[Rfam]
RNA sequence: GUGUGUUUAUGAAGAGCACUAACAAAAGAGUAUUUGACUCAGUUGGUGUUCAGAUGUCUUCACUC
Numbered sequence: 001g002u003g004u005g006u007u008u009a010u011g012a013a014g015a016g017c018a019c020u021a022a023c024a025a026a027a028g029a030g031u032a033u034u035u036g037a038c039u040c041a042g043u044u045g046g047u048g049u050u051c052a053g054a055u056g057u058c059u060u061c062a063c064u065c
Base pairs, nucleotide, nucleotide: 001065003063004062005061014051015050016049017048018047019046020045021044022043023042029039030038031037
Rfam assigns this 65-nucleotide RNA from Alectura lathami to the family "Selenocysteine insertion sequence 1". On this family, see Lambert et al., Biochimie 2002: "A survey of metazoan selenocysteine insertion sequences". The incorporation of selenocysteine into a protein sequence is directed by an in-frame UGA codon (usually a stop codon) within the coding region of the mRNA. Selenoprotein mRNAs contain a conserved secondary structure in the 3' UTR that is required for the distinction of UGA stop from UGA selenocysteine. The selenocysteine insertion sequence (SECIS) is around 60 nt in length and adopts a hairpin structure which is sufficiently well-defined and conserved to act as a computational screen for selenoprotein genes. The base pairs follow the family's consensus structure, which is taken from published work. The family's RNA type in Rfam is cis-regulatory element.